[Rfam]
RNA sequence: CGCACGCGGGUUUGCGGUCGACGGGGAGACAUCCCGCCGCUCGCUCCGGUGUCCCGAACAGGGACAGGCGCCCGCGGAGGCUCAACCGGAAAAGGAGAAAC
Number, nucleotide and partner (000 for none) at each position: 001c079002g000003c077004a000005c076006g075007c074008g073009g072010g071011u000012u000013u000014g044015c043016g000017g000018u000019c000020g000021a000022c036023g035024g000025g034026g000027a000028g000029a000030c000031a000032u000033c000034c025035c023036g022037c000038c000039g000040c000041u000042c000043g015044c014045u000046c000047c000048g000049g000050u000051g065052u064053c063054c062055c061056g000057a000058a000059c000060a000061g055062g054063g053064a052065c051066a000067g000068g000069c000070g000071c010072c009073c008074g007075c006076g005077g003078a000079g001080g000081c000082u000083c000084a000085a000086c000087c000088g000089g000090a000091a000092a000093a000094g000095g000096a000097g000098a000099a000100a000101c000
Shown here is a 101-nucleotide sequence from Enhydrobacter aerosaccus, a member of the family "rpsB sRNA".